[Rfam]
RNA sequence: UUCUGUUGUCCUUCAUUCCACCGGAGUCUGUCUCGUAGGCAUCCAGAUUUCAGUGGAGUGAAGCACAAGAGACA
Numbered sequence: 001u002u003c004u005g006u007u008g009u010c011c012u013u014c015a016u017u018c019c020a021c022c023g024g025a026g027u028c029u030g031u032c033u034c035g036u037a038g039g040c041a042u043c044c045a046g047a048u049u050u051c052a053g054u055g056g057a058g059u060g061a062a063g064c065a066c067a068a069g070a071g072a073c074a
Stems, first nucleotide, its partner, number of pairs: 011063006019055003023051004028046003